The record is an 84-nucleotide RNA from Vitreimonas silvestris, which matches "chrB-a RNA" in Rfam. Rfam classes the family as a cis-regulatory element. The organism belongs to Vitreimonas, within Bacteria. The base pairs follow the family's consensus structure, which is taken from published work.

RNA sequence: UCUAAGGGGCGCCGCGAUUGCCCCGUGAGGCGACAGCCUAAAAUCGCGUCCAACAGCAACCCUCAGCAAGGGAUGGACGCAAUG
Numbered sequence: 001u002c003u004a005a006g007g008g009g010c011g012c013c014g015c016g017a018u019u020g021c022c023c024c025g026u027g028a029g030g031c032g033a034c035a036g037c038c039u040a041a042a043a044u045c046g047c048g049u050c051c052a053a054c055a056g057c058a059a060c061c062c063u064c065a066g067c068a069a070g071g072g073a074u075g076g077a078c079g080c081a082a083u084g
Stems, first nucleotide, its partner, number of pairs: 006024005046080006
Dot-bracket structure: .....(((((.........))))).....................((((((.......................))))))....